[Rfam]
RNA sequence: GGAAGUGUGUGCUAGUGAUGGCACAGCUGAACAUUGAUCGCUAAACGUAGAAAUAUGGCAGAUCUGCUCAGUGGGUGUUGUCACGUGGUCGCUUUCAAGUAGCUUGUGUGUUCGGCUCCCGAUUGCGCGUGCAAGCUCGUGGUAUUUUAAUAUACCUCGGAUUUGCACGCCUGCACGGUCGAGUCUUCACGUCGCUCCUCGAACUACCGCGAUUUCCAAAUUGGGGGGCAAUCGAAUAAGGUCAGACCGAGGUUGUAAUUUGUCGCUUCCAUAUACACAGGCACUGCAGAUAAGCAGUAUGCCAUGUUUUUUUU
Numbered sequence: 001g002g003a004a005g006u007g008u009g010u011g012c013u014a015g016u017g018a019u020g021g022c023a024c025a026g027c028u029g030a031a032c033a034u035u036g037a038u039c040g041c042u043a044a045a046c047g048u049a050g051a052a053a054u055a056u057g058g059c060a061g062a063u064c065u066g067c068u069c070a071g072u073g074g075g076u077g078u079u080g081u082c083a084c085g086u087g088g089u090c091g092c093u094u095u096c097a098a099g100u101a102g103c104u105u106g107u108g109u110g111u112u113c114g115g116c117u118c119c120c121g122a123u124u125g126c127g128c129g130u131g132c133a134a135g136c137u138c139g140u141g142g143u144a145u146u147u148u149a150a151u152a153u154a155c156c157u158c159g160g161a162u163u164u165g166c167a168c169g170c171c172u173g174c175a176c177g178g179u180c181g182a183g184u185c186u187u188c189a190c191g192u193c194g195c196u197c198c199u200c201g202a203a204c205u206a207c208c209g210c211g212a213u214u215u216c217c218a219a220a221u222u223g224g225g226g227g228g229c230a231a232u233c234g235a236a237u238a239a240g241g242u243c244a245g246a247c248c249g250a251g252g253u254u255g256u257a258a259u260u261u262g263u264c265g266c267u268u269c270c271a272u273a274u275a276c277a278c279a280g281g282c283a284c285u286g287c288a289g290a291u292a293a294g295c296a297g298u299a300u301g302c303c304a305u306g307u308u309u310u311u312u313u314u
Stems, first nucleotide, its partner, number of pairs: 001270007015084005027071003032066002036064004040059004280303003283298005